[Rfam]
RNA sequence: UUAUUUAUUAAAGAAUUAUCUUGUAUAAGUUCAAGAAUAUGGCUUGAACGUCUCUACCUGGCUGCCGUAAAUAGCCUGUCUACAAGGGGCAACGAUUCAGGC
Numbered sequence: 001u002u003a004u005u006u007a008u009u010a011a012a013g014a015a016u017u018a019u020c021u022u023g024u025a026u027a028a029g030u031u032c033a034a035g036a037a038u039a040u041g042g043c044u045u046g047a048a049c050g051u052c053u054c055u056a057c058c059u060g061g062c063u064g065c066c067g068u069a070a071a072u073a074g075c076c077u078g079u080c081u082a083c084a085a086g087g088g089g090c091a092a093c094g095a096u097u098c099a100g101g102c
Stems, first nucleotide, its partner, number of pairs: 019087007029049007058078001060076005
The family of this 102-nucleotide RNA from Bacillus sp. 1NLA3E is "Purine riboswitch aptamer". The organism belongs to Bacillus, within Bacteria. The base pairs follow the family's consensus structure, which is taken from published work.